[Rfam]
RNA sequence: AGCGUGCUCCGGGGCUCGGUGGAAUUCCGAACCGGCGGUGACAGUCCGCGACCCGGCCGAACCCAUCGGCCGGUGGAUCCGGUGCGAUUCCGGAACCGACGGUGACAGUCCGGAUGGGAGGAAGCACGCG
Numbered sequence: 001a002g003c004g005u006g007c008u009c010c011g012g013g014g015c016u017c018g019g020u021g022g023a024a025u026u027c028c029g030a031a032c033c034g035g036c037g038g039u040g041a042c043a044g045u046c047c048g049c050g051a052c053c054c055g056g057c058c059g060a061a062c063c064c065a066u067c068g069g070c071c072g073g074u075g076g077a078u079c080c081g082g083u084g085c086g087a088u089u090c091c092g093g094a095a096c097c098g099a100c101g102g103u104g105a106c107a108g109u110c111c112g113g114a115u116g117g118g119a120g121g122a123a124g125c126a127c128g129c130g
Base pairs, nucleotide, nucleotide: 003128004127005126006125007124008123009121010120017029018028019027031109032108033098034097035049036048037047038046044096045095053073054072078094079093080092081091082090100112101111102110